[Rfam]
RNA sequence: UCCUCCCUGGUCUAGUGGUUCUAGACAGUUCAACAGCAGUUGGUUCAUUUGUGAAAUGUUUAGGACCACUUGAUCCGGG
Numbered sequence: 001u002c003c004u005c006c007c008u009g010g011u012c013u014a015g016u017g018g019u020u021c022u023a024g025a026c027a028g029u030u031c032a033a034c035a036g037c038a039g040u041u042g043g044u045u046c047a048u049u050u051g052u053g054a055a056a057u058g059u060u061u062a063g064g065a066c067c068a069c070u071u072g073a074u075c076c077g078g079g
Base pairs, nucleotide, nucleotide: 014070015069016068017067018066019065021063022062024060025059026058027057029055030054031053032052
A member of the RNA family "mir-203 microRNA precursor family" from Nothobranchius furzeri, 79 nucleotides long.
Pairs were carried over by alignment from the consensus structure, which was predicted with RNAalifold.
The source organism's lineage runs through Eukaryota, Deuterostomia, Craniata, Actinopteri and Nothobranchius.